[Rfam]
RNA sequence: GCGGAGGGCCGGACGGCCGCGACGCCCCGCAAGGGGUAUCGAGGAAAGUCCGGACUCCCGUCGGACACGGUGCCGGGUAACGCCCGGCCGGGGCAACCCGAGGGACAGCGCCACAGAGAACAGACCGCCGUCCUCCGGGGCGGCAAGGGUGAAACGGUGGGGUAAGAGCCCACCGGGGGACGGGCAACCGGACCCGCAUGGCAAGCCCCACCGGGAGCAAUGCCGAAUAGGGGCCUCGUGCCCGGCGCGAGCCGGGGCAGGGACGUCCGACCCCGAGAGGCCCGGGUAGGCAGCUGGAGGCGCGCGGCGACGCGCGCCCGAGAGGAAUGGUCGUCGCCCCGACCCGUGCCCCCCCGGGGCGUGGCGCCGGGGACACAGAAUCCGGCUUACAGGCCCUCCGCGCGA
Numbered sequence: 001g002c003g004g005a006g007g008g009c010c011g012g013a014c015g016g017c018c019g020c021g022a023c024g025c026c027c028c029g030c031a032a033g034g035g036g037u038a039u040c041g042a043g044g045a046a047a048g049u050c051c052g053g054a055c056u057c058c059c060g061u062c063g064g065a066c067a068c069g070g071u072g073c074c075g076g077g078u079a080a081c082g083c084c085c086g087g088c089c090g091g092g093g094c095a096a097c098c099c100g101a102g103g104g105a106c107a108g109c110g111c112c113a114c115a116g117a118g119a120a121c122a123g124a125c126c127g128c129c130g131u132c133c134u135c136c137g138g139g140g141c142g143g144c145a146a147g148g149g150u151g152a153a154a155c156g157g158u159g160g161g162g163u164a165a166g167a168g169c170c171c172a173c174c175g176g177g178g179g180a181c182g183g184g185c186a187a188c189c190g191g192a193c194c195c196g197c198a199u200g201g202c203a204a205g206c207c208c209c210a211c212c213g214g215g216a217g218c219a220a221u222g223c224c225g226a227a228u229a230g231g232g233g234c235c236u237c238g239u240g241c242c243c244g245g246c247g248c249g250a251g252c253c254g255g256g257g258c259a260g261g262g263a264c265g266u267c268c269g270a271c272c273c274c275g276a277g278a279g280g281c282c283c284g285g286g287u288a289g290g291c292a293g294c295u296g297g298a299g300g301c302g303c304g305c306g307g308c309g310a311c312g313c314g315c316g317c318c319c320g321a322g323a324g325g326a327a328u329g330g331u332c333g334u335c336g337c338c339c340c341g342a343c344c345c346g347u348g349c350c351c352c353c354c355c356g357g358g359g360c361g362u363g364g365c366g367c368c369g370g371g372g373a374c375a376c377a378g379a380a381u382c383c384g385g386c387u388u389a390c391a392g393g394c395c396c397u398c399c400g401c402g403c404g405a
Stems, first nucleotide, its partner, number of pairs: 001401010011390001012335007020041003024037005046388003050385005055217004064268001068213005073087005088102001089100004103208002108206002110202003125148002127144007156174006175197001176195003181190003221292004231283006260274003299318008
RNA: Bacterial RNase P class A
Organism: Wenxinia saemankumensis